A member of the RNA family "Streptomyces-metH RNA" from Streptomyces morookaense, 120 nucleotides long.
RNA sequence: GUGUCCGCAGCAUGGAAUGCCCUCGGCUUCCCGACUCCCCUGCGGCUACUCUUGCGGCGUGCGCCCUCUGCAGGAGAGCGCAAAGCCGACAGCCGUCGCACACCCGGGAGCAUCCCCAUG
Numbered sequence: 001g002u003g004u005c006c007g008c009a010g011c012a013u014g015g016a017a018u019g020c021c022c023u024c025g026g027c028u029u030c031c032c033g034a035c036u037c038c039c040c041u042g043c044g045g046c047u048a049c050u051c052u053u054g055c056g057g058c059g060u061g062c063g064c065c066c067u068c069u070g071c072a073g074g075a076g077a078g079c080g081c082a083a084a085g086c087c088g089a090c091a092g093c094c095g096u097c098g099c100a101c102a103c104c105c106g107g108g109a110g111c112a113u114c115c116c117c118a119u120g
Stems, first nucleotide, its partner, number of pairs: 060082004066076003085099002088097003
Notes
The family's RNA type in Rfam is small RNA. The base pairs follow the family's consensus structure, which is taken from published work. The organism belongs to Streptomyces, within Bacteria.